[Rfam]
RNA sequence: UGCGCCGGAGCCGCGGUCUGAGUCCGGGUCGCGCGGGAGAGGAACUCAUCGAGUUGCGGGUGCGGCCGGUGCUCAGCCGGCCAGGUUCCGGUAUCCCGCU
Numbered sequence: 001u002g003c004g005c006c007g008g009a010g011c012c013g014c015g016g017u018c019u020g021a022g023u024c025c026g027g028g029u030c031g032c033g034c035g036g037g038a039g040a041g042g043a044a045c046u047c048a049u050c051g052a053g054u055u056g057c058g059g060g061u062g063c064g065g066c067c068g069g070u071g072c073u074c075a076g077c078c079g080g081c082c083a084g085g086u087u088c089c090g091g092u093a094u095c096c097c098g099c100u
Base pairs, nucleotide, nucleotide: 002099003098004097007095008094010092011091012090013089015087016086017085018084019075020074021073022072023071024069025068027067028066029065030064031063032062033061034060037057040054045053046052047051